A member of the RNA family "Nitrogen stress-induced RNA 1" from Calothrix sp. 336/3, 56 nucleotides long. Taxonomically the source falls in Calothrix (Bacteria, Cyanobacteriota, Cyanophyceae, Calotrichaceae). By type it is a small RNA. Rfam 15.1 lists 962 matches to the family in 163 species. On this family, see Ionescu et al., J Mol Biol 2010: "Heterocyst-specific transcription of NsiR1, a non-coding RNA encoded in a tandem array of direct repeats in cyanobacteria". Pairs were carried over by alignment from the consensus structure.
[Rfam]
RNA sequence: UGGUAGAUGCACCCUAUAUUAUUCUGCCCUUAGUCUUUGGCUAGGGGCUUUGUUUU
Numbered sequence: 001u002g003g004u005a006g007a008u009g010c011a012c013c014c015u016a017u018a019u020u021a022u023u024c025u026g027c028c029c030u031u032a033g034u035c036u037u038u039g040g041c042u043a044g045g046g047g048c049u050u051u052g053u054u055u056u
Stems, first nucleotide, its partner, number of pairs: 002013003026048010